Rfam assigns this 163-nucleotide sequence from Roseburia hominis to the family "FMN riboswitch aptamer (RFN element)". It scores 89 bits against the family's covariance model. The source organism's lineage runs through Bacteria, Bacillati, Lachnospiraceae, Roseburia and Roseburia hominis.

[Rfam]
RNA sequence: GGAAUUCUUCGGGGCAGGGUGAUAUGAGUUCACAGAGAUGGAAGCAUAGAUUCCCGACCGACGGUGAUUCUGGCAGACGCCAGAUCAGUCCGUGAGCUGCAGUUGCAGUUGAGCCGGUGUGAAUCCGGGACCGACAGUAUAGUCUGGAUGAGAGAAGAGAAGC
Numbered sequence: 001g002g003a004a005u006u007c008u009u010c011g012g013g014g015c016a017g018g019g020u021g022a023u024a025u026g027a028g029u030u031c032a033c034a035g036a037g038a039u040g041g042a043a044g045c046a047u048a049g050a051u052u053c054c055c056g057a058c059c060g061a062c063g064g065u066g067a068u069u070c071u072g073g074c075a076g077a078c079g080c081c082a083g084a085u086c087a088g089u090c091c092g093u094g095a096g097c098u099g100c101a102g103u104u105g106c107a108g109u110u111g112a113g114c115c116g117g118u119g120u121g122a123a124u125c126c127g128g129g130a131c132c133g134a135c136a137g138u139a140u141a142g143u144c145u146g147g148a149u150g151a152g153a154g155a156a157g158a159g160a161a162g163c
Base pairs, nucleotide, nucleotide: 005159006158007157008156009155010154017055018054019053057143058142059133060132061093062092063091064090088131089130096109097108098107114128115127116126117125135146136145137144